Rfam assigns this 81-nucleotide RNA from Microctonus hyperodae to the family "bantam microRNA precursor family".
NCBI's taxonomy places the organism under Eukaryota, Protostomia, Mandibulata, Insecta, Microctonus.
Pairs were carried over by alignment from the consensus structure, which was predicted with RNAalifold.

[Rfam]
RNA sequence: UAAUUUAGACGAAACUGGUUUUCUCAAUGAUUUGACAGAUAUUUUUAAUUCUGAGAUCAUUGUGAAAGCUGAUUUUGUUCA
Numbered sequence: 001u002a003a004u005u006u007a008g009a010c011g012a013a014a015c016u017g018g019u020u021u022u023c024u025c026a027a028u029g030a031u032u033u034g035a036c037a038g039a040u041a042u043u044u045u046u047a048a049u050u051c052u053g054a055g056a057u058c059a060u061u062g063u064g065a066a067a068g069c070u071g072a073u074u075u076u077g078u079u080c081a
Base pairs, nucleotide, nucleotide: 009078010077011076012075013074014073016071017070018069019068020067021066022065023064025062028059029058030057031056032055033054